[Rfam]
RNA sequence: AAGCAAUAAAAAGCGCCAGGACUGUCAGGAGCGAAAUUGACAGUUGACGAGGAGGAGGAGCAUCGAGUUUUCGGCGGAUGCCUCCCGACUGAACGUUGCACAGUCGUAUGCCUGCUUUUAAAAACAUAAGGGUGACCUUGUGGACAAAAGAAGCGGGACUGCAGCAC
Numbered sequence: 001a002a003g004c005a006a007u008a009a010a011a012a013g014c015g016c017c018a019g020g021a022c023u024g025u026c027a028g029g030a031g032c033g034a035a036a037u038u039g040a041c042a043g044u045u046g047a048c049g050a051g052g053a054g055g056a057g058g059a060g061c062a063u064c065g066a067g068u069u070u071u072c073g074g075c076g077g078a079u080g081c082c083u084c085c086c087g088a089c090u091g092a093a094c095g096u097u098g099c100a101c102a103g104u105c106g107u108a109u110g111c112c113u114g115c116u117u118u119u120a121a122a123a124a125c126a127u128a129a130g131g132g133u134g135a136c137c138u139u140g141u142g143g144a145c146a147a148a149a150g151a152a153g154c155g156g157g158a159c160u161g162c163a164g165c166a167c
Stems, first nucleotide, its partner, number of pairs: 020045008054085005063074004086106006111157007125142007
Rfam assigns this 167-nucleotide RNA from Jeotgalibacillus sp. S-D1 to the family "glmS glucosamine-6-phosphate activated ribozyme aptamer". Rfam's curators write: This entry contains a glucosamine-6-phosphate activated ribozyme that is found in the mRNA for GlmS. GlmS is an enzyme that uses fructose-6-phosphate and glutamine to generate glucosamine-6-phosphate. The ribozyme catalyses self cleavage of the glmS mRNA that is thought to regulate GlmS activity. By type it is a riboswitch. Lineage of the source: Bacteria > Bacillati > Bacillota > Caryophanales > Jeotgalibacillus. A reference for the family is Jansen et al. (2006), "Backbone and nucleobase contacts to glucosamine-6-phosphate in the glmS ribozyme", Nat Struct Mol Biol.